[Rfam]
The family of this 90-nucleotide sequence from Brenneria goodwinii is "Aggregatibacter sRNA 22". It is annotated as a small RNA. A search with the family's covariance model found it, with a score of 54 bits.
RNA sequence: UUGCAGGACAAAACGCAUGGCGUUUUGAACAGCGCUUGCGCUGGCCCCGAAGGGGCGAGGCCCAUGGAUGGGCCGAGGUGUAAAGCCAAC
Numbered sequence: 001u002u003g004c005a006g007g008a009c010a011a012a013a014c015g016c017a018u019g020g021c022g023u024u025u026u027g028a029a030c031a032g033c034g035c036u037u038g039c040g041c042u043g044g045c046c047c048c049g050a051a052g053g054g055g056c057g058a059g060g061c062c063c064a065u066g067g068a069u070g071g072g073c074c075g076a077g078g079u080g081u082a083a084a085g086c087c088a089a090c
Base pairs, nucleotide, nucleotide: 009027010026011025012024013023014022015021016020030043031042032041033040034039044056045055046054047053048052059074060073061072062071063070064069077087078086079085